[Rfam]
RNA sequence: CCCUGGGAGUAUCAUACCAACUUGAGUAACCAUUAGGUGAAAGAGGAUACGUUGAAUAGGAAA
Dot-bracket structure: .((((...(((((.......(((.....(((....)))....))))))))......))))...
The record is a 63-nucleotide RNA sequence, which matches "RAGATH-18 RNA" in Rfam.